[Rfam]
A member of the RNA family "Small nucleolar RNA Z13/snr52" from Trichoderma arundinaceum, 104 nucleotides long.
RNA sequence: UAUCCUUUAAUGAUGAAUUAUUGCGGAUGUAAACUUUUUGUCACGUCGGAAAGCGCAAAACCAUGUCGAGAUUUCCGUUGCCUUCCUUCUGAUUUGCAAAGGAU
Numbered sequence: 001u002a003u004c005c006u007u008u009a010a011u012g013a014u015g016a017a018u019u020a021u022u023g024c025g026g027a028u029g030u031a032a033a034c035u036u037u038u039u040g041u042c043a044c045g046u047c048g049g050a051a052a053g054c055g056c057a058a059a060a061c062c063a064u065g066u067c068g069a070g071a072u073u074u075c076c077g078u079u080g081c082c083u084u085c086c087u088u089c090u091g092a093u094u095u096g097c098a099a100a101g102g103a104u
Base pairs, nucleotide, nucleotide: 003103004102005101024077025076026075027074
Dot-bracket structure: ..(((..................((((..............................................)))).......................))).
About this RNA: Lineage of the source: Eukaryota > Fungi > Hypocreomycetidae > Hypocreaceae > Trichoderma.